azaaromatic riboswitch aptamer (yjdF RNA): a 102-nucleotide RNA from Sporolactobacillus laevolacticus. Pairs were carried over by alignment from the consensus structure, which is taken from published work. It scores 75 bits against the family's covariance model.
[Rfam]
RNA sequence: GAUAUGAAAUGAAAAAACACGAUCCGGUUGGUAGUCCGGAUGUAUCGUUAGUGAUAUCAGUAGCCUUCCCUCCUCGGGAAGGGCAUUAUUUUUACUAUCUGU
Numbered sequence: 001g002a003u004a005u006g007a008a009a010u011g012a013a014a015a016a017a018c019a020c021g022a023u024c025c026g027g028u029u030g031g032u033a034g035u036c037c038g039g040a041u042g043u044a045u046c047g048u049u050a051g052u053g054a055u056a057u058c059a060g061u062a063g064c065c066u067u068c069c070c071u072c073c074u075c076g077g078g079a080a081g082g083g084c085a086u087u088a089u090u091u092u093u094a095c096u097a098u099c100u101g102u
Stems, first nucleotide, its partner, number of pairs: 006092006022041006042057006067079004